[Rfam]
About this RNA
The family of this 131-nucleotide RNA sequence from Heliorestis acidaminivorans is "Molybdenum/Tungsten riboswitch aptamer (Moco RNA motif)". The literature on the family includes a 2008 paper in Mol Microbiol by Regulski et al., "in molybdenum cofactor and tungsten cofactor metabolism". NCBI's taxonomy places the organism under Bacteria, Bacillati, Clostridia, Eubacteriales, Heliorestis.
RNA sequence: GAAAACUUCAUACUCCGAACUGUUACUCCUAAACUUUCCUCGCACAGAGGGAGCAUGGAUUAUCAGUCUAUAGGGUCAGCGAGGAAACUUUCUGGCCUCCCAUGGUGGAAAGGAGCAGGACAGUAUAUCUU
Numbered sequence: 001g002a003a004a005a006c007u008u009c010a011u012a013c014u015c016c017g018a019a020c021u022g023u024u025a026c027u028c029c030u031a032a033a034c035u036u037u038c039c040u041c042g043c044a045c046a047g048a049g050g051g052a053g054c055a056u057g058g059a060u061u062a063u064c065a066g067u068c069u070a071u072a073g074g075g076u077c078a079g080c081g082a083g084g085a086a087a088c089u090u091u092c093u094g095g096c097c098u099c100c101c102a103u104g105g106u107g108g109a110a111a112g113g114a115g116c117a118g119g120a121c122a123g124u125a126u127a128u129c130u131u
Stems, first nucleotide, its partner, number of pairs: 004124001011117001013115004019067004024062002027059003034053005073098007081090003099108002